RNA: mir-16 microRNA precursor family
Organism: Dasyornis broadbenti
RNA sequence: GCCACGCUGAAGCAGCACAAGAAUAUUGGGGUUGAAGGGUUAUUUCCCACGCCAAUAUUUACGUGCUGCUAGGGCGGAAC
Numbered sequence: 001g002c003c004a005c006g007c008u009g010a011a012g013c014a015g016c017a018c019a020a021g022a023a024u025a026u027u028g029g030g031g032u033u034g035a036a037g038g039g040u041u042a043u044u045u046c047c048c049a050c051g052c053c054a055a056u057a058u059u060u061a062c063g064u065g066c067u068g069c070u071a072g073g074g075c076g077g078a079a080c
Stems, first nucleotide, its partner, number of pairs: 001080001005076003011070008020060001022059008